[Rfam]
RNA sequence: AAAUCCUUUAAGAGUAGUCCCGUGAGGCUAAAAAGGAGUUAGUGUUUUGCAUCAAUUCGCUUUAAAUUGUAAAUGAAAGGUUCUCUGCAACCUUAUUUACAAUUUAGAUAAGUCUAAUUGUUCGUUUAACUCCUAUCCAAAAACAGGUAGGAGUUUUUUUAU
Numbered sequence: 001a002a003a004u005c006c007u008u009u010a011a012g013a014g015u016a017g018u019c020c021c022g023u024g025a026g027g028c029u030a031a032a033a034a035g036g037a038g039u040u041a042g043u044g045u046u047u048u049g050c051a052u053c054a055a056u057u058c059g060c061u062u063u064a065a066a067u068u069g070u071a072a073a074u075g076a077a078a079g080g081u082u083c084u085c086u087g088c089a090a091c092c093u094u095a096u097u098u099a100c101a102a103u104u105u106a107g108a109u110a111a112g113u114c115u116a117a118u119u120g121u122u123c124g125u126u127u128a129a130c131u132c133c134u135a136u137c138c139a140a141a142a143a144c145a146g147g148u149a150g151g152a153g154u155u156u157u158u159u160u161a162u
Stems, first nucleotide, its partner, number of pairs: 004037006015030005063106013128155010
Overview
Rfam assigns this 162-nucleotide sequence from Melissococcus plutonius to the family "PyrR binding site". Rfam classes the family as a cis-regulatory element. The match comes from Rfam's covariance-model search (56 bits). This family represents the PyrR binding site and terminator structure. This RNA structure is found upstream of a variety of genes involved in pyrimidine biosynthesis and transport. The alignment also includes a portion of the antiterminator structure. The family's consensus secondary structure is taken from published work.